[Rfam]
Nucleotides: 073
Stems, first nucleotide, its partner, number of pairs: 003073004008068002011065003015061009027050004
Number, partner (000 for none) and nucleotide at each position: 001000a002000c003073c004072u005071c006070c007000u008068g009067u010000g011065c012064c013063u014000a015061c016060u017059g018058a019057g020056c021055u022054g023053a024000u025000a026000a027050c028049a029048g030047u031000u032000g033000g034000g035000u036000a037000u038000u039000a040000a041000a042000c043000a044000g045000a046000u047030a048029c049028u050027g051000g052000c053023u054022c055021a056020g057019u058018u059017c060016a061015g062000c063013a064012g065011g066000a067009a068008c069000c070006g071005g072004a073003g

The record is a 73-nucleotide RNA sequence from Nothobranchius furzeri, which matches "mir-24 microRNA precursor family" in Rfam. The source organism's lineage runs through Eukaryota, Metazoa, Vertebrata, Eurypterygia and Nothobranchius. A search with the family's covariance model found it, with a score of 78 bits. This family represents the microRNA (miRNA) mir-24 family. miRNAs are transcribed as ~70nt precursors (modelled here) and subsequently processed by the Dicer enzyme to give a ~22nt product. In this case the mature sequence comes from the 3' arm of the precursor. The base pairs follow the family's consensus structure, which was predicted with RNAalifold. Rfam 15.1 lists 1,372 matches to the family in 601 species.